[Rfam]
RNA sequence: UCUACCGUGAGGUGGAAUCUGGAGGAAGCCGGCGGCAAAGUCCCGACCUGAGGUACACGAAUCCAAUUUGAGGCUGUUGUAUUCGGGCGAGUCUGCUGAACAAGACGAAGCCCUAUACAGCCAAGGAAUACAGCAGUAAACUUGGGCAGGUACAUGGGAUGAAAGUUAUCGCU
Dot-bracket structure: ((((((....))))))...........(.(((..((...(((((((((((...........(((((......(((.(((((((.((((..((((........))))...)))).............))))))).)))....))))))))))...))))))....))..))).)
RNA: Group II catalytic intron D1-D4-3